[Rfam]
RNA sequence: ACUAUCCAGAGCCAUGUAAAUUGAGACGAAUAUGGUUGCUUGCAAACAUAUUUGGCUCAAUUUAUAUGGCGAAAGUAACCACAUGAGCAAAAAAAGAGCUGUGAAGCAGCGGUUUUGCGAAUGUGGUUCUGAAUAGGUAUAUAUAAAAGGUAUGGGAUGGA
Numbered sequence: 001a002c003u004a005u006c007c008a009g010a011g012c013c014a015u016g017u018a019a020a021u022u023g024a025g026a027c028g029a030a031u032a033u034g035g036u037u038g039c040u041u042g043c044a045a046a047c048a049u050a051u052u053u054g055g056c057u058c059a060a061u062u063u064a065u066a067u068g069g070c071g072a073a074a075g076u077a078a079c080c081a082c083a084u085g086a087g088c089a090a091a092a093a094a095a096g097a098g099c100u101g102u103g104a105a106g107c108a109g110c111g112g113u114u115u116u117g118c119g120a121a122u123g124u125g126g127u128u129c130u131g132a133a134u135a136g137g138u139a140u141a142u143a144u145a146a147a148a149g150g151u152a153u154g155g156g157a158u159g160g161a
Base pairs, nucleotide, nucleotide: 002160003159004158005157006156007155011070012069013068014067017064018063019062020061021060022059023058024057025056027054028053029052030051031050032049034047036045037044038043077128078127079126080125081124082123083122084121087118088117089116090115096110099109100108101107102106133142134141135140
The family of this 161-nucleotide RNA from Roseburia sp. CAG:100 is "Clostridiales-1 RNA". The family has 194 seed sequences and 1,172 matches in Rfam 15.1. A search with the family's covariance model found it, with a score of 54 bits. The organism belongs to Roseburia, within Bacteria.